[Rfam]
The family of this 588-nucleotide part of an RNA from Herpetosiphon aurantiacus is "Bacterial large subunit ribosomal RNA". Pairs were carried over by alignment from the consensus structure, which is taken from published work.
RNA sequence: CUCGCAGCAGGACAAAAAGACCCCGUGGAGCUUGACUACAGCUUGCCAUCGGCGCGUGUGUGGCGCUGCGUAGGAUAGGUGGGAGCCAGCGAAGCCGGACUUGCGGGUCUGGUGGAGGCGACGGUGAAAUACCACUCUGCGACAGAUAUGCGCCUCACCCUUGGCCAUGAAGCUGGCAAGGGGACGGUGGCUGGUGGGUAGUUUGACUGGGGCGGUCGCCUCCCAAAAAGUAACGGAGGCGCGCAAAGGUAGGUUCAGGCCGGAUGGCAACCGGCUGGGGCGUGCAAGCGCAGAAACCUGCUUGACUGCAAGGCAAACAGGCCGCGCAGGGACGAAAGUCGGCGCUAGUGAUCCCACGUGCCUGAGUGGAAAGGCCGUGGCGUAACGGAUAAAAGCUACCCCGGGGAUAACAGGCUGAUCCCGCCCAAGAGUUCACAUCGACGGCGGGGUUUGGCACCUCGAUGUCGGCUCGUCGCAUCCUGGGGCUGGAGUCGGUCCCAAGGGUUGGGCUGUUCGCCCAUGAAAGCGGCACGCGAGCUGGGUUCAGAACGUCGUGAGACAGUUCGGUCUCUAUCCGCUGUGAGCGAA
Number, nucleotide and partner (000 for none) at each position: 001c584002u583003c582004g581005c580006a579007g578008c577009a000010g576011g575012a574013c000014a000015a570016a000017a000018a000019g000020a000021c000022c405023c404024c403025g402026u000027g401028g400029a397030g396031c395032u394033u393034g000035a202036c201037u200038a199039c000040a000041g000042c194043u193044u000045g191046c190047c189048a188049u000050c000051g154052g153053c152054g151055c150056g149057u148058g147059u146060g000061u144062g143063g000064c141065g140066c139067u000068g137069c000070g000071u000072a000073g000074g000075a000076u000077a000078g136079g135080u134081g133082g132083g000084a000085g119086c118087c117088a000089g000090c000091g000092a000093a000094g113095c112096c111097g110098g109099a108100c107101u106102u000103g000104c000105g000106g101107g100108u099109c098110u097111g096112g095113u094114g000115g000116a000117g087118g086119c085120g000121a000122c000123g000124g000125u000126g000127a000128a000129a000130u000131a000132c082133c081134a080135c079136u078137c068138u000139g066140c065141g064142a000143c062144a061145g000146a059147u058148a057149u056150g055151c054152g053153c052154c051155u000156c000157a000158c182159c181160c180161u000162u179163g000164g177165c176166c175167a174168u000169g000170a000171a000172g000173c000174u167175g166176g165177c164178a000179a162180g160181g159182g158183g000184a000185c000186g000187g000188u048189g047190g046191c045192u000193g043194g042195u000196g000197g000198g000199u038200a037201g036202u035203u000204u000205g217206a216207c215208u214209g000210g000211g000212g000213c000214g208215g207216u206217c205218g240219c239220c238221u237222c236223c235224c000225a000226a000227a000228a000229a000230g000231u000232a000233a000234c000235g223236g222237a221238g220239g219240c218241g386242c000243g343244c342245a000246a000247a000248g000249g301250u300251a299252g298253g297254u296255u000256c280257a000258g276259g275260c274261c273262g272263g271264a000265u000266g000267g000268c000269a000270a000271c263272c262273g261274g260275c259276u258277g000278g000279g000280g256281c000282g291283u290284g000285c000286a000287a000288g000289c000290g283291c282292a000293g000294a000295a000296a254297c253298c252299u251300g250301c249302u000303u000304g000305a000306c329307u328308g327309c326310a000311a000312g323313g322314c321315a000316a000317a000318c000319a000320g000321g314322c313323c312324g000325c000326g309327c308328a307329g306330g000331g340332a339333c338334g000335a000336a000337a000338g333339u332340c331341g000342g244343c243344g000345c000346u000347a000348g000349u000350g000351a000352u000353c000354c380355c379356a378357c377358g376359u000360g000361c000362c373363u372364g000365a000366g000367u000368g000369g000370a000371a000372a363373g362374g000375c000376c358377g357378u356379g355380g354381c000382g000383u000384a000385a000386c241387g000388g000389a000390u000391a000392a000393a033394a032395g031396c030397u029398a000399c000400c028401c027402c025403g024404g023405g022406g000407a000408u000409a000410a000411c000412a000413g000414g455415c454416u453417g000418a452419u449420c448421c447422c446423g445424c444425c443426c000427a000428a000429g439430a438431g000432u000433u000434c000435a000436c000437a000438u430439c429440g000441a000442c000443g425444g424445c423446g422447g421448g420449g419450u000451u000452u418453g416454g415455c414456a000457c000458c000459u000460c000461g000462a000463u000464g000465u000466c541467g539468g538469c537470u536471c533472g530473u529474c528475g527476c526477a000478u000479c504480c503481u000482g499483g498484g497485g496486c495487u494488g000489g000490a000491g000492u000493c000494g487495g486496u485497c484498c483499c482500a000501a000502g000503g480504g479505u000506u520507g519508g518509g517510c516511u000512g000513u000514u000515c000516g510517c509518c508519c507520a506521u000522g000523a000524a000525a000526g476527c475528g474529g473530c472531a000532c000533g471534c000535g000536a470537g469538c468539u467540g000541g466542g000543u000544u000545c000546a000547g565548a564549a563550c562551g560552u559553c558554g000555u000556g000557a000558g553559a552560c551561a000562g550563u549564u548565c547566g000567g000568u000569c000570u015571c000572u000573a000574u012575c011576c010577g008578c007579u006580g005581u004582g003583a002584g001585c000586g000587a000588a000
Rfam's curators put it in the seed alignment.